[Rfam]
RNA: Small nucleolar RNA R44/J54/Z268 family
Organism: Trema orientale
RNA sequence: CUUUCAUGUGAUGAUAAAAUAGACAGGGACAUCAGCACUCUUUUAGAGAUUGAUGACUGGUCUUUUGGGAAUCUCUCUGAUGAAUG
Numbered sequence: 001c002u003u004u005c006a007u008g009u010g011a012u013g014a015u016a017a018a019a020u021a022g023a024c025a026g027g028g029a030c031a032u033c034a035g036c037a038c039u040c041u042u043u044u045a046g047a048g049a050u051u052g053a054u055g056a057c058u059g060g061u062c063u064u065u066u067g068g069g070a071a072u073c074u075c076u077c078u079g080a081u082g083a084a085u086g
Stems, first nucleotide, its partner, number of pairs: 003084004